[Rfam]
RNA sequence: AAAGCAGGGAUAGUGUGUAUCAGUGUUGUGCUAUUAUCAAUGCACUCUUCUGAAAGUGUUCCCUUGCAAUAUUGAUUUGAGAAAAUGGGCAGUUGUGUUUCAUUUUAUAUUGUUGAAAAUCACAACAAUCAUUUU
Numbered sequence: 001a002a003a004g005c006a007g008g009g010a011u012a013g014u015g016u017g018u019a020u021c022a023g024u025g026u027u028g029u030g031c032u033a034u035u036a037u038c039a040a041u042g043c044a045c046u047c048u049u050c051u052g053a054a055a056g057u058g059u060u061c062c063c064u065u066g067c068a069a070u071a072u073u074g075a076u077u078u079g080a081g082a083a084a085a086u087g088g089g090c091a092g093u094u095g096u097g098u099u100u101c102a103u104u105u106u107a108u109a110u111u112g113u114u115g116a117a118a119a120u121c122a123c124a125a126c127a128a129u130c131a132u133u134u135u
Stems, first nucleotide, its partner, number of pairs: 004067003007063004015045006082135007092126004